Rfam assigns this 85-nucleotide RNA sequence from Propithecus coquereli to the family "mir-571 microRNA precursor family". Taxonomically the source falls in Propithecus (Eukaryota, Bilateria, Euteleostomi, Indriidae). Rfam 15.1 lists 202 matches to the family in 33 species.

[Rfam]
RNA sequence: AGCAAGAUCAAAUUGGGUGAGCUAUUUUCUGGUCUGUAGCCAAGGCCAGGGGUCCUCAAGAAUGUCACCUAAACAAGGGCCUGCC
Numbered sequence: 001a002g003c004a005a006g007a008u009c010a011a012a013u014u015g016g017g018u019g020a021g022c023u024a025u026u027u028u029c030u031g032g033u034c035u036g037u038a039g040c041c042a043a044g045g046c047c048a049g050g051g052g053u054c055c056u057c058a059a060g061a062a063u064g065u066c067a068c069c070u071a072a073a074c075a076a077g078g079g080c081c082u083g084c085c
Base pairs, nucleotide, nucleotide: 002084003083004082006080008078009077013073014072016070017069018067019066021065022064026060027059028058032053033052034051035050037048039046